RNA sequence: UAGGGCCCUGAGACCUCCCUGUCCGCUCAGGGAAACAUUGCCUCUGACUGCUACGGUGGACAGAUCUCCUCUGACAGCCACGAAGUCUCCCAGCUCAACG
Numbered sequence: 001u002a003g004g005g006c007c008c009u010g011a012g013a014c015c016u017c018c019c020u021g022u023c024c025g026c027u028c029a030g031g032g033a034a035a036c037a038u039u040g041c042c043u044c045u046g047a048c049u050g051c052u053a054c055g056g057u058g059g060a061c062a063g064a065u066c067u068c069c070u071c072u073g074a075c076a077g078c079c080a081c082g083a084a085g086u087c088u089c090c091c092a093g094c095u096c097a098a099c100g
Stems, first nucleotide, its partner, number of pairs: 010089005016083002041059002044056003

Annotation
Pyrrolysine insertion sequence 1: a 100-nucleotide RNA from Methanosarcina sp. MTP4. Its family is annotated with pyrrolysine incorporation in the Gene Ontology. The match comes from Rfam's covariance-model search (98 bits). On this family, see Theil Have et al., BMC Bioinformatics 2013: "Effects of using coding potential, sequence conservation and mRNA structure conservation for predicting pyrroly-sine containing genes". Lineage of the source: Archaea > Methanomicrobia > Methanosarcinales > Methanosarcinaceae > Methanosarcina. By type it is a cis-regulatory element. The base pairs follow the family's consensus structure, which was predicted with WAR.